Description
This 98-nucleotide RNA from Cimex lectularius belongs to the Rfam family "mir-277 microRNA precursor family". Taxonomically the source falls in Cimex (Eukaryota, Mandibulata, Insecta, Paraneoptera). Gene Ontology terms of the family: miRNA-mediated post-transcriptional gene silencing and RISC complex. A reference for the family is Liu et al. (2010), "MicroRNAs of Bombyx mori identified by Solexa sequencing", BMC Genomics. A search with the family's covariance model found it, with a score of 65 bits. The base pairs follow the family's consensus structure, which was predicted with RNAalifold.
RNA sequence: UUAGUGUAGGAGUGGGUGCCAGAAGGGCGUUUACAUUGAUUACCUCCAAUACGUAAGAGCCCUGUAAAUGCACUUUCUGGUACGACAUUCCUACAUUA
Numbered sequence: 001u002u003a004g005u006g007u008a009g010g011a012g013u014g015g016g017u018g019c020c021a022g023a024a025g026g027g028c029g030u031u032u033a034c035a036u037u038g039a040u041u042a043c044c045u046c047c048a049a050u051a052c053g054u055a056a057g058a059g060c061c062c063u064g065u066a067a068a069u070g071c072a073c074u075u076u077c078u079g080g081u082a083c084g085a086c087a088u089u090c091c092u093a094c095a096u097u098a
Stems, first nucleotide, its partner, number of pairs: 008092004016083008025073001027071009